Shown here is a 135-nucleotide RNA sequence from Piliocolobus tephrosceles, a member of the family "Small nucleolar RNA SNORA70". For this family Rfam cites "Pseudouridine in RNA: what, where, how, and why" (Charette and Gray, IUBMB Life, 2000). Rfam links the family to the GO terms nucleolus and RNA processing. From the family's description: snoRNA U70 seems to be exclusive to mammals and is a member of the H/ACA class of snoRNA which contain H (ANANNA) and ACA box motifs. H/ACA box snoRNAs are involved in the conversion of uridines to pseudouridines (5-ribosyluracil) a constituent of structural RNAs (transfer, ribosomal, small nuclear, and small nucleolar).
[Rfam]
RNA sequence: CUGCAACCAAUUAAACUGACUGAGUUCCUUUCCUCAUGGGGGCCCAAUGUGCAAUGGCUGCAAACAGCCACUUCCUUGGUCGUGUAUGUAGCCCAUUUCUUGUAUGGGUUGCUCUAAGGGACCUUGGAGACAGGC
Number, nucleotide and partner (000 for none) at each position: 001c000002u053003g052004c051005a050006a000007c000008c000009a000010a000011u000012u000013a000014a000015a000016c000017u000018g000019a048020c000021u046022g045023a000024g000025u042026u041027c040028c039029u000030u000031u000032c000033c000034u000035c000036a000037u000038g000039g028040g027041g026042g025043c000044c000045c022046a021047a000048u019049g000050u005051g004052c003053a002054a000055u000056g000057g000058c000059u000060g000061c000062a000063a000064a000065c000066a000067g000068c000069c000070a000071c000072u000073u000074c000075c000076u000077u000078g123079g122080u121081c000082g000083u000084g000085u000086a000087u000088g000089u111090a110091g109092c108093c107094c106095a000096u000097u000098u000099c000100u000101u000102g000103u000104a000105u000106g094107g093108g092109u091110u090111g089112c000113u000114c000115u000116a000117a000118g000119g000120g000121a080122c079123c078124u000125u000126g000127g000128a000129g000130a000131c000132a000133g000134g000135c000
Background:
Rfam classes the family as an H/ACA-box small nucleolar RNA.